This 198-nucleotide RNA from Equus caballus belongs to the Rfam family "Connexin-43 internal ribosome entry site (IRES)". Taxonomically the source falls in Equus (Eukaryota, Chordata, Boreoeutheria, Equidae). The family's consensus secondary structure is taken from published work. This family represents the connexin-43 internal ribosome entry site (IRES) which allows cap independent translation during conditions such as heat shock and stress.
RNA sequence: AGCUUUUAUCAGAUAUCAGCAGUUGUCUUUCAUGAGGGGGAAGAGUGAGGAAGGUAUCAAAGAAUAGCAGACUUGUGAACUUGAGACAGUUUUGAGUGCUUGAACUUACUCUUUCAUUUUACUUCAUCCUCCAAGGAGUGCAAUCACUUGGCGUGCCUACUUCACUUCUUUUAAGCGAAAGAACAGCAAACAGGCAAC
Number, nucleotide and partner (000 for none) at each position: 001a000002g020003c019004u018005u000006u000007u015008a014009u013010c000011a000012g000013a009014u008015a007016u000017c000018a004019g003020c002021a000022g000023u000024u000025g000026u000027c000028u000029u138030u137031c136032a000033u134034g000035a000036g131037g130038g129039g128040g125041a124042a123043g122044a000045g000046u000047g118048a117049g000050g115051a000052a114053g113054g112055u000056a000057u000058c000059a000060a000061a000062g000063a000064a000065u000066a000067g000068c000069a093070g092071a091072c000073u089074u088075g000076u000077g000078a000079a000080c000081u000082u000083g000084a000085g000086a000087c000088a074089g073090u000091u071092u070093u069094g109095a000096g107097u000098g105099c000100u000101u000102g000103a000104a000105c098106u000107u096108a000109c094110u000111c000112u054113u053114u052115c050116a000117u048118u047119u000120u000121a000122c043123u042124u041125c040126a000127u000128c039129c038130u037131c036132c000133a000134a033135g000136g031137a030138g029139u000140g000141c000142a000143a000144u000145c000146a000147c194148u193149u192150g191151g000152c000153g000154u188155g187156c186157c000158u000159a000160c181161u180162u179163c177164a000165c175166u174167u173168c000169u000170u000171u000172u000173a167174a166175g165176c000177g163178a000179a162180a161181g160182a000183a000184c000185a000186g156187c155188a154189a000190a000191c150192a149193g148194g147195c000196a000197a000198c000